RNA: tRNA
Organism: Butyrivibrio sp. INlla14
RNA sequence: GCCUCCUUAGUCUAAAGGUCAGGACAUUGGCCUCUCAAGCCAGGGAUGUUCGGUUCAAGUCCGACAGGAGGUA
Numbered sequence: 001g002c003c004u005c006c007u008u009a010g011u012c013u014a015a016a017g018g019u020c021a022g023g024a025c026a027u028u029g030g031c032c033u034c035u036c037a038a039g040c041c042a043g044g045g046a047u048g049u050u051c052g053g054u055u056c057a058a059g060u061c062c063g064a065c066a067g068g069a070g071g072u073a
Stems, first nucleotide, its partner, number of pairs: 001072007010025004027043005048065003052062002